Rfam assigns this 160-nucleotide RNA from Salmonella enterica to the family "Salmonella enterica sRNA STnc590".

RNA sequence: CUUUAACUUUUCAGAUUCAAUAUAUUGCCUGCAAAAACAUGCCUCAAUGAUUGAGCCAGGCUACCAGCCACCUCCGGAUGAUUAUAUAUAAGAAUUACUACUCAAAAAAUCUUUUUUAUAAUAAAAGCUCAACACAUGGUCAUAAAUGAUAAAAAAUAUU
Numbered sequence: 001c002u003u004u005a006a007c008u009u010u011u012c013a014g015a016u017u018c019a020a021u022a023u024a025u026u027g028c029c030u031g032c033a034a035a036a037a038c039a040u041g042c043c044u045c046a047a048u049g050a051u052u053g054a055g056c057c058a059g060g061c062u063a064c065c066a067g068c069c070a071c072c073u074c075c076g077g078a079u080g081a082u083u084a085u086a087u088a089u090a091a092g093a094a095u096u097a098c099u100a101c102u103c104a105a106a107a108a109a110u111c112u113u114u115u116u117u118a119u120a121a122u123a124a125a126a127g128c129u130c131a132a133c134a135c136a137u138g139g140u141c142a143u144a145a146a147u148g149a150u151a152a153a154a155a156a157u158a159u160u
Stems, first nucleotide, its partner, number of pairs: 027140003031042003051132006059069002081122006090113004

Rfam's curators put it in the seed alignment. Rfam classes the family as a small RNA.